[Rfam]
Record summary
Rfam assigns this 132-nucleotide RNA sequence from Citrifermentans bemidjiense to the family "c-di-AMP riboswitch aptamer (ydaO/yuaA leader)". This family represents a conserved RNA structure found upstream of the ydaO and yuaA genes in Bacillus subtilis and related genes in other bacteria.
Nucleotides: 132
Stems, first nucleotide, its partner, number of pairs: 012116003018034005035112006045052001053097003061073004076091004
Number, partner (000 for none) and nucleotide at each position: 001000g002000g003000a004000a005000u006000u007000u008000a009000g010000c011000a012116g013115c014114c015000g016000a017000g018034a019033u020032c021031c022030g023000u024000c025000a026000c027000c028000g029000a030022c031021g032020g033019a034018u035112g036111c037110g038109g039108g040107g041000g042000a043000c044000c045052c046000a047000c048000u049000u050000a051000a052045g053097g054096g055095g056000c057000g058000u059000a060000u061073u062072c063071c064070a065000g066000a067000c068000a069000a070064u071063g072062g073061a074000u075000a076091g077090g078089g079088c080000a081000c082000u083000u084000c085000c086000a087000a088079g089078c090077c091076c092000g093000a094000g095055c096054c097053c098000g099000u100000c101000a102000g103000c104000u105000a106000a107040c108039c109038u110037c111036g112035u113000a114014g115013g116012c117000a118000u119000u120000u121000g122000g123000g124000a125000g126000a127000g128000c129000a130000u131000g132000g

Gene Ontology terms of the family: cyclic-di-AMP binding and regulation of gene expression.